[Rfam]
RNA: small nucleolar RNA snoR137
RNA sequence: GUUGCUUUUUACUGGUGAACUCUUUCUACUUCAGAAAUGGGGAUGUUCAUGUUUCAGAAGGAUAAAAUAAUUGAAGAAGAUAUAUUGCCAGUAUUAAACUGCAUGGUGUGCUCUUUCAUGUUGUACUGUGUUACCUGUCUACUGGUAUACUC
Numbered sequence: 001g002u003u004g005c006u007u008u009u010u011a012c013u014g015g016u017g018a019a020c021u022c023u024u025u026c027u028a029c030u031u032c033a034g035a036a037a038u039g040g041g042g043a044u045g046u047u048c049a050u051g052u053u054u055c056a057g058a059a060g061g062a063u064a065a066a067a068u069a070a071u072u073g074a075a076g077a078a079g080a081u082a083u084a085u086u087g088c089c090a091g092u093a094u095u096a097a098a099c100u101g102c103a104u105g106g107u108g109u110g111c112u113c114u115u116u117c118a119u120g121u122u123g124u125a126c127u128g129u130g131u132u133a134c135c136u137g138u139c140u141a142c143u144g145g146u147a148u149a150c151u152c
Stems, first nucleotide, its partner, number of pairs: 003062001005060004016049005021043005087146007101131002104128005